The family of this 367-nucleotide part of an RNA from Kocuria coralli is "Bacterial large subunit ribosomal RNA".
RNA sequence: CGAGAGAAUCAUGGUUAAGGAACUCGGCAAAAUGCCCCCGUAACUUCGGGAGAAGGGGGGCCCGGACCCUGAACUGCACGUGCUGUGGUGAGGGGGUAAGGGUCGCAGAGACCAGGGGGAAGCGACUGUUUAUCAAAAACACAGGUCCGUGCGAAGUCGUAAGACGAUGUAUACGGACUGACUCCUGCCCGGUGCUGGAAGGUUAAGAGGACCUGUUAAACCCUUCGGGGUUGAAGCGGAGAAUUUAAGCCCCAGUAAACGGCGGUGGUAACUAUAACCAUCCUAAGGUAGCGAAAUUCCUUGUCGGGUAAGUUCCGACCUGCACGAAUGGAGUAACGACUUCCCUACUGUCUCAACCAUGAACUCG
Numbered sequence: 001c002g003a004g005a006g007a008a009u010c011a012u013g014g015u016u017a018a019g020g021a022a023c024u025c026g027g028c029a030a031a032a033u034g035c036c037c038c039c040g041u042a043a044c045u046u047c048g049g050g051a052g053a054a055g056g057g058g059g060g061c062c063c064g065g066a067c068c069c070u071g072a073a074c075u076g077c078a079c080g081u082g083c084u085g086u087g088g089u090g091a092g093g094g095g096g097u098a099a100g101g102g103u104c105g106c107a108g109a110g111a112c113c114a115g116g117g118g119g120a121a122g123c124g125a126c127u128g129u130u131u132a133u134c135a136a137a138a139a140c141a142c143a144g145g146u147c148c149g150u151g152c153g154a155a156g157u158c159g160u161a162a163g164a165c166g167a168u169g170u171a172u173a174c175g176g177a178c179u180g181a182c183u184c185c186u187g188c189c190c191g192g193u194g195c196u197g198g199a200a201g202g203u204u205a206a207g208a209g210g211a212c213c214u215g216u217u218a219a220a221c222c223c224u225u226c227g228g229g230g231u232u233g234a235a236g237c238g239g240a241g242a243a244u245u246u247a248a249g250c251c252c253c254a255g256u257a258a259a260c261g262g263c264g265g266u267g268g269u270a271a272c273u274a275u276a277a278c279c280a281u282c283c284u285a286a287g288g289u290a291g292c293g294a295a296a297u298u299c300c301u302u303g304u305c306g307g308g309u310a311a312g313u314u315c316c317g318a319c320c321u322g323c324a325c326g327a328a329u330g331g332a333g334u335a336a337c338g339a340c341u342u343c344c345c346u347a348c349u350g351u352c353u354c355a356a357c358c359a360u361g362a363a364c365u366c367g
Base pairs, nucleotide, nucleotide: 001367002366003365004364009362010361011360012359013358014357015356016355018353019352020351035059036058037057038056039055044049060103061102062101063100066097067096068095069094070093104108116346117345118344119343120342121341122340123338124337127141128140129139144179145178146177147176148175149174150173151172152169156165157164158163182333183332184331185330187263188262189261192260193259194256195255196254197253198252201251202250203249207245208244213239214238215237216236219232220231221230222229223228264282265281266280267279268278269277283287293320303319304318305317306316307315308314
Lineage of the source: Bacteria > Bacillati > Actinomycetes > Micrococcales > Kocuria.